[Rfam]
RNA sequence: AUUGCGGCGGUCUCUGAUUCGCUUGGUGCAGGUCGGGACUUUCACGGCGCCGCCGCCGCUCGACGGCCGGCUCAGCUCGAAAGCCGCCGGAGGAGUGUGUGCAUGCUGUGUCUGUCUUGUACGAAUCCGUAUGGGAUAGAUGCGUUUGCGCGUCGUCCUCGGCGAGUUUAGGUCCUGCCCUGUAUCAAUUGAAUCGGAGACCGCGGUAUAU
Numbered sequence: 001a002u003u004g005c006g007g008c009g010g011u012c013u014c015u016g017a018u019u020c021g022c023u024u025g026g027u028g029c030a031g032g033u034c035g036g037g038a039c040u041u042u043c044a045c046g047g048c049g050c051c052g053c054c055g056c057c058g059c060u061c062g063a064c065g066g067c068c069g070g071c072u073c074a075g076c077u078c079g080a081a082a083g084c085c086g087c088c089g090g091a092g093g094a095g096u097g098u099g100u101g102c103a104u105g106c107u108g109u110g111u112c113u114g115u116c117u118u119g120u121a122c123g124a125a126u127c128c129g130u131a132u133g134g135g136a137u138a139g140a141u142g143c144g145u146u147u148g149c150g151c152g153u154c155g156u157c158c159u160c161g162g163c164g165a166g167u168u169u170a171g172g173u174c175c176u177g178c179c180c181u182g183u184a185u186c187a188a189u190u191g192a193a194u195c196g197g198a199g200a201c202c203g204c205g206g207u208a209u210a211u
Stems, first nucleotide, its partner, number of pairs: 013198002017194004023188010034177005040171002
RNA: MIR168 microRNA precursor family